[Rfam]
Rfam assigns this 124-nucleotide RNA sequence from Ornithinibacillus bavariensis to the family "Ribosomal protein L20 leader". A search with the family's covariance model found it, with a score of 74 bits. The base pairs follow the family's consensus structure, which was predicted with CMfinder. On this family, see Zengel and Lindahl, Prog Nucleic Acid Res Mol Biol 1994: "Diverse mechanisms for regulating ribosomal protein synthesis in Escherichia coli". Lineage of the source: Bacteria > Bacillati > Bacilli > Caryophanales > Ornithinibacillus. The family's RNA type in Rfam is cis-regulatory leader.
RNA sequence: AAAGACAAGUAGAGGCACCCGCUUCUCACCUGUUCAACGCCUACAAGCAGUUGACUGGUUCACAGCUUUAUGAAUGACUAAAAGACGUGUGGGUGCAUUUGUGUGCCCACAUUUUUUUAUUGAA
Numbered sequence: 001a002a003a004g005a006c007a008a009g010u011a012g013a014g015g016c017a018c019c020c021g022c023u024u025c026u027c028a029c030c031u032g033u034u035c036a037a038c039g040c041c042u043a044c045a046a047g048c049a050g051u052u053g054a055c056u057g058g059u060u061c062a063c064a065g066c067u068u069u070a071u072g073a074a075u076g077a078c079u080a081a082a083a084g085a086c087g088u089g090u091g092g093g094u095g096c097a098u099u100u101g102u103g104u105g106c107c108c109a110c111a112u113u114u115u116u117u118u119a120u121u122g123a124a
Stems, first nucleotide, its partner, number of pairs: 011026006028059003036052003039048002088111010